[Rfam]
RNA: Glycine riboswitch aptamer
Organism: Pectobacterium atrosepticum
RNA sequence: UUGAAGCCAACUGGAGAGAGGUUGCGAUGCAACCCACCGAAGGGGCAAGCAGCUCUGCUGCGUAAACUCUCAGGUAAAGCGGACAGAGGGAGUGGC
Numbered sequence: 001u002u003g004a005a006g007c008c009a010a011c012u013g014g015a016g017a018g019a020g021g022u023u024g025c026g027a028u029g030c031a032a033c034c035c036a037c038c039g040a041a042g043g044g045g046c047a048a049g050c051a052g053c054u055c056u057g058c059u060g061c062g063u064a065a066a067c068u069c070u071c072a073g074g075u076a077a078a079g080c081g082g083a084c085a086g087a088g089g090g091a092g093u094g095g096c
Stems, first nucleotide, its partner, number of pairs: 007090002011086003020034004036075003039071002043069003049063002